[Rfam]
RNA sequence: AGAGCCGAUCGGGCGGUCGCGGCGGGUUGGUUUCGAUCCGCUGAGGAACGUCCGGACUCCACAGGGCAGGGUGGUGGGUAACGCCCACCCGGGGUGACCCGCGGGACAGUGCCACAGAAAGCAAACCGCCGGGUGUCUCGGAGUUCUCCGGGACACCCGGUAAGGGUGAAACGGUGGUGUAAGAGACCACCAGCGUCCGGGGUGACUCGGACGGCUCGGUAAACCCCACCCGGAGCAAGGUCAAGAAGGGGCGUCGCCAGACGCUCUGCGCGGAUGUUCGAGGGCGGCCCGCCCGAGUCCGCGGGUAGACCGCAUUGAGGUCGUCGGUGACGGCGGCCCCAGAUGGAUGACCGCCUCCGCGCGGGCCGCAAGGCCCGCGCGAGACAGAAUCCGGCGUACAGAUCGACUCUUCCG
Numbered sequence: 001a002g003a004g005c006c007g008a009u010c011g012g013g014c015g016g017u018c019g020c021g022g023c024g025g026g027u028u029g030g031u032u033u034c035g036a037u038c039c040g041c042u043g044a045g046g047a048a049c050g051u052c053c054g055g056a057c058u059c060c061a062c063a064g065g066g067c068a069g070g071g072u073g074g075u076g077g078g079u080a081a082c083g084c085c086c087a088c089c090c091g092g093g094g095u096g097a098c099c100c101g102c103g104g105g106a107c108a109g110u111g112c113c114a115c116a117g118a119a120a121g122c123a124a125a126c127c128g129c130c131g132g133g134u135g136u137c138u139c140g141g142a143g144u145u146c147u148c149c150g151g152g153a154c155a156c157c158c159g160g161u162a163a164g165g166g167u168g169a170a171a172c173g174g175u176g177g178u179g180u181a182a183g184a185g186a187c188c189a190c191c192a193g194c195g196u197c198c199g200g201g202g203u204g205a206c207u208c209g210g211a212c213g214g215c216u217c218g219g220u221a222a223a224c225c226c227c228a229c230c231c232g233g234a235g236c237a238a239g240g241u242c243a244a245g246a247a248g249g250g251g252c253g254u255c256g257c258c259a260g261a262c263g264c265u266c267u268g269c270g271c272g273g274a275u276g277u278u279c280g281a282g283g284g285c286g287g288c289c290c291g292c293c294c295g296a297g298u299c300c301g302c303g304g305g306u307a308g309a310c311c312g313c314a315u316u317g318a319g320g321u322c323g324u325c326g327g328u329g330a331c332g333g334c335g336g337c338c339c340c341a342g343a344u345g346g347a348u349g350a351c352c353g354c355c356u357c358c359g360c361g362c363g364g365g366c367c368g369c370a371a372g373g374c375c376c377g378c379g380c381g382a383g384a385c386a387g388a389a390u391c392c393g394g395c396g397u398a399c400a401g402a403u404c405g406a407c408u409c410u411u412c413c414g
Stems, first nucleotide, its partner, number of pairs: 001410004006405005011399001012355007020043009048397003052394005057235004064290004069231005074088005089103001090101004104226002109224002111220003126165002128161015173191006193215001194213008239311004282294004319338008

This 414-nucleotide RNA from Allostreptomyces psammosilenae belongs to the Rfam family "Bacterial RNase P class A". Ribonuclease P (RNase P) is a ubiquitous endoribonuclease, found in archaea, bacteria and eukarya as well as chloroplasts and mitochondria. Its best characterised activity is the generation of mature 5'-ends of tRNAs by cleaving the 5'-leader elements of precursor-tRNAs. Cellular RNase Ps are ribonucleoproteins. RNA from bacterial RNase Ps retains its catalytic activity in the absence of the protein subunit, i.e. it is a ribozyme. Isolated eukaryotic and archaeal RNase P RNA has not been shown to retain its catalytic function, but is still essential for the catalytic activity of the holoenzyme. Although the archaeal and eukaryotic holoenzyme s have a much greater protein content than the bacterial ones, the RNA cores from all the three lineages are homologous -- helices corresponding to P1, P2, P3, P4, and P10/11 are common to all cellular RNase P RNAs. Yet, there is considerable sequence variation, particularly among the eukaryotic RNAs. Identified in Yersinia as Ysr151/RnpB. The source organism's lineage runs through Bacteria, Bacillati, Actinomycetes, Streptomycetaceae and Allostreptomyces. The family's RNA type in Rfam is ribozyme.